RNA sequence: UCGUUGGGAUGCAGCAAUUGCUUCUUGAUAGUUUCUCCUCUAUUUCUCCUUUGUAGACUUGGCGCGGGCGUAAAACCCCGCGCAAUUUU
Numbered sequence: 001u002c003g004u005u006g007g008g009a010u011g012c013a014g015c016a017a018u019u020g021c022u023u024c025u026u027g028a029u030a031g032u033u034u035c036u037c038c039u040c041u042a043u044u045u046c047u048c049c050u051u052u053g054u055a056g057a058c059u060u061g062g063c064g065c066g067g068g069c070g071u072a073a074a075a076c077c078c079c080g081c082g083c084a085a086u087u088u089u
Stems, first nucleotide, its partner, number of pairs: 003029007011021001039057005062083007